[Rfam]
Overview: The family of this 84-nucleotide RNA from Fukomys damarensis is "mir-500 microRNA precursor family". Rfam links the family to the GO terms miRNA-mediated post-transcriptional gene silencing and RISC complex. Pairs were carried over by alignment from the consensus structure, which was predicted with RNAalifold. For this family Rfam cites "Mammalian microRNAs: experimental evaluation of novel and previously annotated genes" (Chiang et al., Genes Dev, 2010). It scores 93 bits against the family's covariance model.
RNA sequence: GCUCCUUCUCUCUAAUCCUUGCUACCUGGGUGAGAGUGCUGUCUCCAUGCAAUGUACCUGGGCAAGGGUUCCGAGAGCAAGAGU
Numbered sequence: 001g002c003u004c005c006u007u008c009u010c011u012c013u014a015a016u017c018c019u020u021g022c023u024a025c026c027u028g029g030g031u032g033a034g035a036g037u038g039c040u041g042u043c044u045c046c047a048u049g050c051a052a053u054g055u056a057c058c059u060g061g062g063c064a065a066g067g068g069u070u071c072c073g074a075g076a077g078c079a080a081g082a083g084u
Stems, first nucleotide, its partner, number of pairs: 014070007025062008037051003